[Rfam]
RNA sequence: AACUUAUCAAGAAAGGUGGAGGGUUCUGGCCCAGUGAAGCCUUGGCAACCGGACUUUUCACGGUGCCAAAUCCAGCAGUAUCACUGACAGAUAAGGC
Number, nucleotide and partner (000 for none) at each position: 001a000002a000003c095004u094005u093006a092007u091008c090009a000010a000011g000012a000013a043014a042015g041016g040017u039018g000019g000020a000021g032022g031023g030024u000025u000026c075027u074028g073029g072030c023031c022032c021033a000034g000035u000036g000037a000038a000039g017040c016041c015042u014043u013044g067045g066046c065047a064048a000049c063050c062051g059052g058053a057054c000055u000056u000057u053058u052059c051060a000061c000062g050063g049064u047065g046066c045067c044068a000069a000070a000071u089072c029073c028074a027075g026076c086077a085078g084079u083080a000081u000082c000083a079084c078085u077086g076087a000088c000089a071090g008091a007092u006093a005094a004095g003096g000097c000
The family of this 97-nucleotide sequence from Listeria innocua is "SAM riboswitch aptamer (S box leader)".
Rfam describes the family as follows. The SAM riboswitch is found upstream of a number of genes which code for proteins involved in methionine or cysteine biosynthesis in Gram-positive bacteria. The SAM riboswitch acts at the level of transcription termination control. The predicted structure consists of a complex stem-loop region followed by a single stem loop terminator region.
Pairs were carried over by alignment from the consensus structure, which is taken from published work.
The source organism's lineage runs through Bacteria, Bacillati, Bacillota, Caryophanales and Listeria.